The record is an 85-nucleotide RNA from Aquipseudomonas alcaligenes, which matches "Group II catalytic intron D1-D4-1" in Rfam. Lineage of the source: Bacteria > Pseudomonadota > Gammaproteobacteria > Pseudomonadales > Aquipseudomonas. The family has 237 seed sequences and 2,508 matches in Rfam 15.1.
Nucleotides: 085
Stems, first nucleotide, its partner, number of pairs: 001027001004023003008019001010017002040047002049085003058078006
Number, partner (000 for none) and nucleotide at each position: 001027c002000u003000a004023c005022c006021g007000g008019c009000c010017c011016c012000g013000a014000g015000a016011g017010g018000u019008g020000a021006c022005g023004g024000g025000a026000u027001g028000g029000g030000c031000g032000a033000a034000c035000a036000g037000a038000a039000g040047u041046c042000a043000g044000c045000a046041g047040a048000g049085g050084c051083c052000g053000u054000a055000g056000u057000a058078g059077u060076u061075g062074c063073u064000c065000g066000a067000a068000a069000c070000c071000g072000g073063a074062g075061c076060g077059a078058u079000g080000a081000a082000g083051g084050g085049c